[Rfam]
The family of this 236-nucleotide RNA sequence from Galemys pyrenaicus is "Small nucleolar RNA SNORD17".
RNA sequence: GUGAAAUGAUGAUUUAGUUUAUCCAUUCGCUGAGUGUGCAGCACUGACCGUCUUCCAAGCCUUGGUUCCUGUUCUAGGAACUUGGGACUUCGUAGCCUCCAAAUGCCCUGCAGUCUGUGGUGUUCUACCACAGGCAGCGUGUGUGUUGGUGGACUACUGGUAAGAAUGGUUGGUAGCAGCAGGAUGGGUCCCUCUGGGUCCUGUCUCACCAAGAUGAGUGGUGGAAAUCUGAUCAC
Numbered sequence: 001g002u003g004a005a006a007u008g009a010u011g012a013u014u015u016a017g018u019u020u021a022u023c024c025a026u027u028c029g030c031u032g033a034g035u036g037u038g039c040a041g042c043a044c045u046g047a048c049c050g051u052c053u054u055c056c057a058a059g060c061c062u063u064g065g066u067u068c069c070u071g072u073u074c075u076a077g078g079a080a081c082u083u084g085g086g087a088c089u090u091c092g093u094a095g096c097c098u099c100c101a102a103a104u105g106c107c108c109u110g111c112a113g114u115c116u117g118u119g120g121u122g123u124u125c126u127a128c129c130a131c132a133g134g135c136a137g138c139g140u141g142u143g144u145g146u147u148g149g150u151g152g153a154c155u156a157c158u159g160g161u162a163a164g165a166a167u168g169g170u171u172g173g174u175a176g177c178a179g180c181a182g183g184a185u186g187g188g189u190c191c192c193u194c195u196g197g198g199u200c201c202u203g204u205c206u207c208a209c210c211a212a213g214a215u216g217a218g219u220g221g222u223g224g225a226a227a228u229c230u231g232a233u234c235a236c
Stems, first nucleotide, its partner, number of pairs: 010235005017228004023221007030213002034209002038180002041177001043174007051165004055160002058089002061086004065081006092157004097152002105144002107141001110138002113135010182207001183205006190198002
Source information:
It scores 227 bits against the family's covariance model. By type it is a C/D-box small nucleolar RNA. The family has 19 seed sequences and 1,015 matches in Rfam 15.1. Gene Ontology terms of the family: RNA processing and nucleolus.